Background
This 152-nucleotide RNA sequence from a Candidatus Zixiibacteriota bacterium belongs to the Rfam family "Actinobacteria sRNA Ms_IGR-5". The family's RNA type in Rfam is small RNA. The source organism's lineage runs through Bacteria, Pseudomonadati and Candidatus Zixiibacteriota.
RNA sequence: ACACAAGAAAGGAGGUGGUCCAGUCUUGAUAAAUACGGAACAUAGUGAGGUGGCUGCUACUUAGCGGCGCUCUAACAUAUUAGUUGGGGUGACGUUAAGUAAAUCCCAACAGUUUACCGGCCCGACGGUUCCGCACUGUCGGGCUUUUCAUU
Numbered sequence: 001a002c003a004c005a006a007g008a009a010a011g012g013a014g015g016u017g018g019u020c021c022a023g024u025c026u027u028g029a030u031a032a033a034u035a036c037g038g039a040a041c042a043u044a045g046u047g048a049g050g051u052g053g054c055u056g057c058u059a060c061u062u063a064g065c066g067g068c069g070c071u072c073u074a075a076c077a078u079a080u081u082a083g084u085u086g087g088g089g090u091g092a093c094g095u096u097a098a099g100u101a102a103a104u105c106c107c108a109a110c111a112g113u114u115u116a117c118c119g120g121c122c123c124g125a126c127g128g129u130u131c132c133g134c135a136c137u138g139u140c141g142g143g144c145u146u147u148u149c150a151u152u
Base pairs, nucleotide, nucleotide: 014058015057016056017055018054019053059100060099061098062097063096064095065094067093068091069090070089119145120144121143122142123141124140125139126138127137128136129135